[Rfam]
RNA sequence: CUGUAAAGACAUGUUUAGCUGUAGAGCUUUUUAAUCUAAAAUAUUUUUAGAUGCAUGUUGAAGAA
Numbered sequence: 001c002u003g004u005a006a007a008g009a010c011a012u013g014u015u016u017a018g019c020u021g022u023a024g025a026g027c028u029u030u031u032u033a034a035u036c037u038a039a040a041a042u043a044u045u046u047u048u049a050g051a052u053g054c055a056u057g058u059u060g061a062a063g064a065a
Base pairs, nucleotide, nucleotide: 008059009058010057011056012055013054018027019026020025034052035051036050037049038048039047040046041045
A member of the RNA family "S4-Fusobacteriales ribosomal protein leader" from Hypnocyclicus thermotrophus, 65 nucleotides long. A search with the family's covariance model found it, with a score of 58 bits. By type it is a cis-regulatory leader.